Description:
This 70-nucleotide RNA sequence from Herbaspirillum sp. meg3 belongs to the Rfam family "Betaproteobacteria toxic small RNA". Rfam 15.1 lists 951 matches to the family in 508 species. About the family: Overexpression in amino aid rich medium attenuates growth, suggesting role in repressing amino acid intake and metabolism. The literature on the family includes a 2012 paper in Genome Res by Kimelman et al., "A vast collection of microbial genes that are toxic to bacteria".
[Rfam]
RNA sequence: UGUCUCCUCCAAUUUCCUCCUAAAGAAUUGGAUUUAAGCCCGCAACCGAAAGGUGAGCGGGUUUUUUUUU
Numbered sequence: 001u002g003u004c005u006c007c008u009c010c011a012a013u014u015u016c017c018u019c020c021u022a023a024a025g026a027a028u029u030g031g032a033u034u035u036a037a038g039c040c041c042g043c044a045a046c047c048g049a050a051a052g053g054u055g056a057g058c059g060g061g062u063u064u065u066u067u068u069u070u
Stems, first nucleotide, its partner, number of pairs: 008032007037063007